[Rfam]
RNA sequence: CCGCGGCCGGCGGGGAAACCGUUACCAUUACUGAGUUUAGUAAUGGUAGCGGUUCUGCCGCCGGUACGGCA
Dot-bracket structure: ......(((.(((...((((.((((((((((((....)))))))))))).))))...))).))).......